[Rfam]
RNA sequence: GGCGAGCCCUGACUGGGAUAUGAAAUCACGUGAACAGCGUUCUGAGUACAUGUCUGUACCCGUAAUCUUCAUAAUCCAAGCCAGGGUUCGCC
Number, nucleotide and partner (000 for none) at each position: 001g000002g000003c090004g089005a088006g087007c086008c085009c084010u083011g082012a000013c080014u079015g000016g077017g076018a075019u073020a072021u071022g070023a069024a068025a000026u000027c000028a000029c062030g061031u000032g059033a000034a057035c056036a055037g000038c000039g000040u000041u000042c000043u000044g000045a000046g000047u000048a000049c000050a000051u000052g000053u000054c000055u036056g035057u034058a000059c032060c000061c030062g029063u000064a000065a000066u000067c000068u024069u023070c022071a021072u020073a019074a000075u018076c017077c016078a000079a014080g013081c000082c011083a010084g009085g008086g007087u006088u005089c004090g003091c000092c000

mir-54 microRNA precursor family: a 92-nucleotide sequence from Caenorhabditis latens. The source organism's lineage runs through Eukaryota, Ecdysozoa, Rhabditomorpha, Rhabditoidea and Caenorhabditis.